Rfam assigns this 51-nucleotide RNA to the family "6A RNA". The family's consensus secondary structure is taken from published work. Rfam classes the family as a small RNA.
RNA sequence: AUAUCUGCUCAUAGAACGUGAGCAGGGUAAACUAAAAAAAGUUCACCGAGA
Numbered sequence: 001a002u003a004u005c006u007g008c009u010c011a012u013a014g015a016a017c018g019u020g021a022g023c024a025g026g027g028u029a030a031a032c033u034a035a036a037a038a039a040a041g042u043u044c045a046c047c048g049a050g051a
Stems, first nucleotide, its partner, number of pairs: 006024006014044004